[Rfam]
Shown here is a 217-nucleotide RNA sequence from Syntrophotalea acetylenica, a member of the family "T-box leader". On this family, see Grundy et al., J Bacteriol 1994: "Interaction between the acceptor end of tRNA and the T box stimulates antitermination in the Bacillus subtilis tyrS gene: a new role for the discriminator base". From the family's description: Uncharged tRNA acts as the effector for transcription antitermination of genes in the T-box leader family. T-boxes are found upstream of many aminoacyl-tRNA synthetase genes and some amino acid biosynthetic genes usually in Gram-positive bacteria. The anticodon of a specific tRNA base pairs to a specifier sequence within the T-box motif, and the NCCA acceptor tail of the tRNA base pairs to a conserved bulge in the T-box antiterminator hairpin. The match comes from Rfam's covariance-model search (119 bits).
RNA sequence: UGAAAGACGGUGAAGAGGAGUAGUAGGUCCUCACUCGAUUGCAGAGAGCCGGCGGUUGCUGCGAGCCGGUAUCGAGCGGGCUGAACUCGCCUCGGAGUUGCGCGAUUGAACCGGCAGUGGCGGCUAGGUUGCGACGUGAGCCUGCGUGAAUGGAAAUAAAGGGCCCCGUCGGGGCUGAAUCAGGGUGGUACCGCGAAGCCAAGCUCUCGCCCCUGGA
Numbered sequence: 001u002g003a004a005a006g007a008c009g010g011u012g013a014a015g016a017g018g019a020g021u022a023g024u025a026g027g028u029c030c031u032c033a034c035u036c037g038a039u040u041g042c043a044g045a046g047a048g049c050c051g052g053c054g055g056u057u058g059c060u061g062c063g064a065g066c067c068g069g070u071a072u073c074g075a076g077c078g079g080g081c082u083g084a085a086c087u088c089g090c091c092u093c094g095g096a097g098u099u100g101c102g103c104g105a106u107u108g109a110a111c112c113g114g115c116a117g118u119g120g121c122g123g124c125u126a127g128g129u130u131g132c133g134a135c136g137u138g139a140g141c142c143u144g145c146g147u148g149a150a151u152g153g154a155a156a157u158a159a160a161g162g163g164c165c166c167c168g169u170c171g172g173g174g175c176u177g178a179a180u181c182a183g184g185g186u187g188g189u190a191c192c193g194c195g196a197a198g199c200c201a202a203g204c205u206c207u208c209g210c211c212c213c214u215g216g217a
Stems, first nucleotide, its partner, number of pairs: 007098002015093004026082005037073003048070006101133007135146003162176006182214004193210004